A member of the RNA family "M-box riboswitch aptamer (ykoK leader)" from Gordonia effusa, 177 nucleotides long. The pairing is the family consensus, mapped onto this sequence. Rfam describes the family as follows. M-box riboswitch, also know as ykoK leader is described as a metaloregulatory RNA that sense divalent metals and function as a genetic control element of genes related to divalent metal transport in bacteria.

RNA sequence: GCAGCGCUUCGUUAGGCGAGGCUCCUGCACGAAUACAGGCCACUGAUCUCACGACGUCGAGAGACGCCCAAGGUUAGGACAGGUCCUCCCGGAUUAAGGGUUGACCCAAAGUGGCUGUCGGCCGUCCGCGGUACGAACUACGUCGUGCAGUGCCAAAGCUCAACGUGGAGGCGACUU
Numbered sequence: 001g002c003a004g005c006g007c008u009u010c011g012u013u014a015g016g017c018g019a020g021g022c023u024c025c026u027g028c029a030c031g032a033a034u035a036c037a038g039g040c041c042a043c044u045g046a047u048c049u050c051a052c053g054a055c056g057u058c059g060a061g062a063g064a065c066g067c068c069c070a071a072g073g074u075u076a077g078g079a080c081a082g083g084u085c086c087u088c089c090c091g092g093a094u095u096a097a098g099g100g101u102u103g104a105c106c107c108a109a110a111g112u113g114g115c116u117g118u119c120g121g122c123c124g125u126c127c128g129c130g131g132u133a134c135g136a137a138c139u140a141c142g143u144c145g146u147g148c149a150g151u152g153c154c155a156a157a158g159c160u161c162a163a164c165g166u167g168g169a170g171g172c173g174a175c176u177u
Base pairs, nucleotide, nucleotide: 005173006172007171008170009169010168011164012163013097015160016159017158020154021153022152025150026149027148028147029146030145031144032143039115040114041113042112043111045075046074047073048072049071055066056065057064058063082106083105084104085103088100089099090098117138118137